Shown here is a 124-nucleotide RNA sequence from Staphylococcus saccharolyticus, a member of the family "Ribosomal protein L20 leader". A reference for the family is Zengel and Lindahl (1994), "Diverse mechanisms for regulating ribosomal protein synthesis in Escherichia coli", Prog Nucleic Acid Res Mol Biol. From the family's description: This family is a putative r-protein leader autoregulatory structure found in B. subtilis and other low-GC Gram-positive bacteria. It is located in the 5' untranslated regions of mRNAs encoding initiation factor 3 followed by ribosomal proteins L35 and L20 (infC-rpmI-rplT). A Rho-independent transcription terminator structure that is probably involved in regulation is included at the 3' end.
RNA sequence: CGAACCAAGUAGAAGCACCCGCUUCUCACCUGUAGCGACGCAAAAGCAGUUGGCAGGUUAAUCAUGUUACACAAUAAGUGUGUGGAAGAAGAGCGGGUAGUGAUACCCGCUCUUCUUUUUUGCU
Numbered sequence: 001c002g003a004a005c006c007a008a009g010u011a012g013a014a015g016c017a018c019c020c021g022c023u024u025c026u027c028a029c030c031u032g033u034a035g036c037g038a039c040g041c042a043a044a045a046g047c048a049g050u051u052g053g054c055a056g057g058u059u060a061a062u063c064a065u066g067u068u069a070c071a072c073a074a075u076a077a078g079u080g081u082g083u084g085g086a087a088g089a090a091g092a093g094c095g096g097g098u099a100g101u102g103a104u105a106c107c108c109g110c111u112c113u114u115c116u117u118u119u120u121u122g123c124u
Base pairs, nucleotide, nucleotide: 011026012025013024014023015022016021028058029057030056037051038050039049040047041046092111093110094109095108096107097106098105099104